[Rfam]
RNA sequence: ACGGGAACAGCACGGCCGCAAAUCUGACUCGUCCCGCAGGGGACUCGUCCCCGAGGGACUCGGGAUUGCGGAGGUGC
Numbered sequence: 001a002c003g004g005g006a007a008c009a010g011c012a013c014g015g016c017c018g019c020a021a022a023u024c025u026g027a028c029u030c031g032u033c034c035c036g037c038a039g040g041g042g043a044c045u046c047g048u049c050c051c052c053g054a055g056g057g058a059c060u061c062g063g064g065a066u067u068g069c070g071g072a073g074g075u076g077c
Base pairs, nucleotide, nucleotide: 010077011076012075013074016071017070018069019068020067021066024064025063031059032058033057034056035055037053